[Rfam]
RNA sequence: CGUCGCCAGCAGCAGCGCAGAAGUAAGGGUGGCAUGGUGUGUUGUAUUGCCACCCUUACUUCUGCGCUGCUGCUGGCGGUG
Numbered sequence: 001c002g003u004c005g006c007c008a009g010c011a012g013c014a015g016c017g018c019a020g021a022a023g024u025a026a027g028g029g030u031g032g033c034a035u036g037g038u039g040u041g042u043u044g045u046a047u048u049g050c051c052a053c054c055c056u057u058a059c060u061u062c063u064g065c066g067c068u069g070c071u072g073c074u075g076g077c078g079g080u081g
Stems, first nucleotide, its partner, number of pairs: 001081003005077003011071008020061001022060008
A member of the RNA family "mir-16 microRNA precursor family" from Chrysemys picta, 81 nucleotides long. The family is grouped with related families in Rfam's "mir-15 clan". The source organism's lineage runs through Eukaryota, Tetrapoda, Emydidae, Chrysemys and Chrysemys picta. The match comes from Rfam's covariance-model search (42 bits). A reference for the family is Calin et al. (2002), "Frequent deletions and down-regulation of micro- RNA genes miR15 and miR16 at 13q14 in chronic lymphocytic leukemia", Proc Natl Acad Sci U S A.